[Rfam]
RNA sequence: ACUCAGGCACGACCCGCGCAGGUAACGCACGGGACCGACCUGAUGUACACGUACCUAAGGGA
Numbered sequence: 001a002c003u004c005a006g007g008c009a010c011g012a013c014c015c016g017c018g019c020a021g022g023u024a025a026c027g028c029a030c031g032g033g034a035c036c037g038a039c040c041u042g043a044u045g046u047a048c049a050c051g052u053a054c055c056u057a058a059g060g061g062a
Stems, first nucleotide, its partner, number of pairs: 001046002004042004013033004018028002

The family of this 62-nucleotide sequence from Corynebacterium jeikeium is "L31-Corynebacteriaceae ribosomal protein leader". On this family, see Eckert and Weinberg, BMC Microbiol 2020: "Discovery of 20 novel ribosomal leader candidates in bacteria and archaea". The family's RNA type in Rfam is cis-regulatory leader. Clan: Ribosomal Protein L31 Leader clan. Taxonomically the source falls in Corynebacterium (Bacteria, Bacillati, Actinomycetota, Corynebacteriaceae).